RNA sequence: AGCACUGCCCCCGGUGAGUCAGGGUGGGGCUGGCCCCCUGCUUCGUGCCCAUCCGCGCUCUAACCUUCUGCCCACCUGCAGGAGCU
Numbered sequence: 001a002g003c004a005c006u007g008c009c010c011c012c013g014g015u016g017a018g019u020c021a022g023g024g025u026g027g028g029g030c031u032g033g034c035c036c037c038c039u040g041c042u043u044c045g046u047g048c049c050c051a052u053c054c055g056c057g058c059u060c061u062a063a064c065c066u067u068c069u070g071c072c073c074a075c076c077u078g079c080a081g082g083a084g085c086u
Stems, first nucleotide, its partner, number of pairs: 001086003005081004013072003016066001018064002021061006028054002032049003036045001